Description
The family of this 133-nucleotide sequence from Ceyx cyanopectus is "Small nucleolar RNA SNORA9". A search with the family's covariance model found it, with a score of 108 bits. The family is grouped with related families in Rfam's "SNORA9 clan". ACA9 is a member of the H/ACA class of snoRNA that guide the sites of modification of uridines to pseudouridines. Gene Ontology terms of the family: RNA processing and nucleolus. Pairs were carried over by alignment from the consensus structure, which was predicted with PFOLD.

[Rfam]
RNA sequence: CCGCAAGCCUUCCAGCGUGAGGGGGUCUGCAGUGGCCGCCCCAUUCCUACAGCGCUUGCCAGAGCAGCCCCGGGACGGUUUGAGGCCUUUCCCCGCCAAAACCGGGGGGGGGUUAUAGACAUCCCGGACAUUC
Numbered sequence: 001c002c003g004c005a006a007g008c009c010u011u012c013c014a015g016c017g018u019g020a021g022g023g024g025g026u027c028u029g030c031a032g033u034g035g036c037c038g039c040c041c042c043a044u045u046c047c048u049a050c051a052g053c054g055c056u057u058g059c060c061a062g063a064g065c066a067g068c069c070c071c072g073g074g075a076c077g078g079u080u081u082g083a084g085g086c087c088u089u090u091c092c093c094c095g096c097c098a099a100a101a102c103c104g105g106g107g108g109g110g111g112g113u114u115a116u117a118g119a120c121a122u123c124c125c126g127g128a129c130a131u132u133c
Base pairs, nucleotide, nucleotide: 003059004058005057006056007055008054018043019042024037025036026035027034071126072125073124074123075122086112087111088110089109090108091107093105094104095103